[Rfam]
RNA sequence: UGCGCAGCGCGUGCUUCAUGACAAUGUUGGGAAAGCUCACGCCUUUAAGACGUGCGGUGCGGAUGUACUGCGCCGUCAUGACUUCGGCCAUCGAAGCCCGGGUCAUCCGCGCAAUAUAGCCCAUGCCGUAGAGCGAAAUCGUCAGAACCGGUAAGAAGAAGUUGUUGAAAUUCGCAUUC
Numbered sequence: 001u002g003c004g005c006a007g008c009g010c011g012u013g014c015u016u017c018a019u020g021a022c023a024a025u026g027u028u029g030g031g032a033a034a035g036c037u038c039a040c041g042c043c044u045u046u047a048a049g050a051c052g053u054g055c056g057g058u059g060c061g062g063a064u065g066u067a068c069u070g071c072g073c074c075g076u077c078a079u080g081a082c083u084u085c086g087g088c089c090a091u092c093g094a095a096g097c098c099c100g101g102g103u104c105a106u107c108c109g110c111g112c113a114a115u116a117u118a119g120c121c122c123a124u125g126c127c128g129u130a131g132a133g134c135g136a137a138a139u140c141g142u143c144a145g146a147a148c149c150g151g152u153a154a155g156a157a158g159a160a161g162u163u164g165u166u167g168a169a170a171u172u173c174g175c176a177u178u179c
Base pairs, nucleotide, nucleotide: 006139010135011134012133014131015130016128021124028123029122030121031120040111041110042109046105048103051100052099054097055075056074057073058072059071060070061069062068082096083095084094085093086092145179146178147177149174150173151172154165156163157162